The record is an 84-nucleotide RNA from Pan troglodytes, which matches "mir-548 microRNA precursor family" in Rfam.

RNA sequence: GAUAAGCUUGGUGCAAAAGUGAUUGCGGUUUUUGCCAUUGAAAAUAAUGGCAAAAACCGCAAUCACUUUUGCACCAAGCUAAUA
Numbered sequence: 001g002a003u004a005a006g007c008u009u010g011g012u013g014c015a016a017a018a019g020u021g022a023u024u025g026c027g028g029u030u031u032u033u034g035c036c037a038u039u040g041a042a043a044a045u046a047a048u049g050g051c052a053a054a055a056a057c058c059g060c061a062a063u064c065a066c067u068u069u070u071g072c073a074c075c076a077a078g079c080u081a082a083u084a
Stems, first nucleotide, its partner, number of pairs: 002083002005080036
Notes: Rfam 15.1 lists 3,009 matches to the family in 27 species. For this family Rfam cites "Ultra-high throughput sequencing-based small RNA discovery and discrete statistical biomarker analysis in a collection of cervical tumours and matched controls" (Witten et al., BMC Biol, 2010).